This 77-nucleotide sequence from Ralstonia solanacearum belongs to the Rfam family "SAH (S-adenosyl-L-homocysteine) riboswitch aptamer". Taxonomically the source falls in Ralstonia solanacearum (Bacteria, Pseudomonadota, Burkholderiaceae, Ralstonia). It is one of the family's seed sequences.
[Rfam]
RNA sequence: CAUUCCGAGGAGCGUUGCAACGGACCGGCAUGCGCCCGGCCCGCCAGGCUCGGAAGUUCAAACGGCGCUCGCACUAU
Dot-bracket structure: ..((((((............(((.((((.......)))).)))......))))))......................